[Rfam]
The record is a 62-nucleotide sequence from Lynx pardinus, which matches "Small nucleolar RNA SNORD42" in Rfam.
Lineage of the source: Eukaryota > Amniota > Mammalia > Boreoeutheria > Lynx.
Rfam classes the family as a C/D-box small nucleolar RNA.
The match comes from Rfam's covariance-model search (40 bits).
Rfam 15.1 lists 848 matches to the family in 572 species.
snoRNA U42 is found in intron 3 of the ribosomal protein L23a (RPL23a) gene in humans and is also present in mice.
For this family Rfam cites "RNomics: an experimental approach that identifies 201 candidates for novel, small, non-messenger RNAs in mouse" (Huttenhofer et al., EMBO J, 2001).

RNA sequence: UUCCACAUGAUGAGAAAAUCUUAAUUUAUUGAAAAUAAACGGCAAAGGAGCCACUAAUGAAA
Numbered sequence: 001u002u003c004c005a006c007a008u009g010a011u012g013a014g015a016a017a018a019u020c021u022u023a024a025u026u027u028a029u030u031g032a033a034a035a036u037a038a039a040c041g042g043c044a045a046a047g048g049a050g051c052c053a054c055u056a057a058u059g060a061a062a
Stems, first nucleotide, its partner, number of pairs: 001062002004059002
Dot-bracket structure: ((.((....................................................)).))